Shown here is a 113-nucleotide sequence from Caldinitratiruptor microaerophilus, a member of the family "TPP riboswitch aptamer (THI element)". It scores 64 bits against the family's covariance model. About the family: Vitamin B(1) in its active form thiamin pyrophosphate (TPP) is an essential coenzyme that is synthesised by coupling of pyrimidine and thiazole moieties in bacteria. NCBI's taxonomy places the organism under Bacteria, Bacillota, Eubacteriales, Symbiobacteriaceae, Caldinitratiruptor. Pairs were carried over by alignment from the consensus structure, which is taken from published work.
RNA sequence: AGAGUCUCGUGCGGGAGCUCGGGUGAGCCGGGCUGAGAGGGUGACCUGCACCGUCACCGACCGCUGAACCUGAUCCGGGUAAUGCCGGCGUAGGGAAGGCGCAUUCGGUCGCC
Numbered sequence: 001a002g003a004g005u006c007u008c009g010u011g012c013g014g015g016a017g018c019u020c021g022g023g024u025g026a027g028c029c030g031g032g033c034u035g036a037g038a039g040g041g042u043g044a045c046c047u048g049c050a051c052c053g054u055c056a057c058c059g060a061c062c063g064c065u066g067a068a069c070c071u072g073a074u075c076c077g078g079g080u081a082a083u084g085c086c087g088g089c090g091u092a093g094g095g096a097a098g099g100c101g102c103a104u105u106c107g108g109u110c111g112c113c
Stems, first nucleotide, its partner, number of pairs: 006101001008099001010097001011064004017033005040058005069094004075088004